About this RNA:
MIR1862 microRNA precursor family: an 89-nucleotide RNA from Oryza meyeriana.
Nucleotides: 089
Base pairs, nucleotide, nucleotide: 001088002087003086004085005084007082008081009080010079011078012077013076014075015074016073017072018071019070020069021068023066024065025064026063027062028061029060030059031058032057033056034055035054037051038050039049
Number, partner (000 for none) and nucleotide at each position: 001088u002087a003086c004085u005084c006000c007082c008081u009080c010079c011078g012077u013076c014075u015074c016073a017072a018071a019070a020069u021068a022000a023066a024065a025064a026063a027062a028061c029060c030059u031058a032057g033056u034055a035054c036000u037051g038050g039049a040000u041000g042000u043000g044000a045000c046000a047000c048000a049039u050038c051037c052000u053000a054035g055034u056033a057032c058031u059030a060029g061028g062027u063026u064025u065024u066023u067000g068021u069020a070019u071018u072017u073016u074015g075014a076013g077012a078011c079010g080009g081008a082007g083000u084005g085004a086003g087002u088001a089000u

Overview:
Rfam 15.1 lists 74 matches to the family in 10 species. NCBI's taxonomy places the organism under Eukaryota, Viridiplantae, Magnoliopsida, Poaceae, Oryza meyeriana. Pairs were carried over by alignment from the consensus structure, which was predicted with RNAalifold.